[Rfam]
RNA sequence: GAAAACUCGGCUCUGUGCAAAUGAAACGAUGAACGUUGUGCAGAGC
Numbered sequence: 001g002a003a004a005a006c007u008c009g010g011c012u013c014u015g016u017g018c019a020a021a022u023g024a025a026a027c028g029a030u031g032a033a034c035g036u037u038g039u040g041c042a043g044a045g046c
Stems, first nucleotide, its partner, number of pairs: 011045005017039003
Dot-bracket structure: ..........(((((.(((.................))).))))).
RNA: uup RNA